The family of this 118-nucleotide RNA from Ancylostoma duodenale is "U5 spliceosomal RNA". Pairs were carried over by alignment from the consensus structure, which is taken from published work. Rfam classes the family as a spliceosomal small nuclear RNA. Rfam 15.1 lists 28,527 matches to the family in 2,489 species. It scores 86 bits against the family's covariance model.

RNA sequence: AUCUCUGGCUCCUUUGCAUUUAAACGGGAAAAUCUUUCGCCUUUUACUAAAGAUUUCCGUGCAGAGGUGCAUUUUAUGAGUAUAAAAUAAUUUUUGGAAUCCGCUCGAAAGAGCGGGA
Dot-bracket structure: ..(((..((.((((((((...........((((((((...........))))))))...)))))))).)).......)))...................((((((......)))))).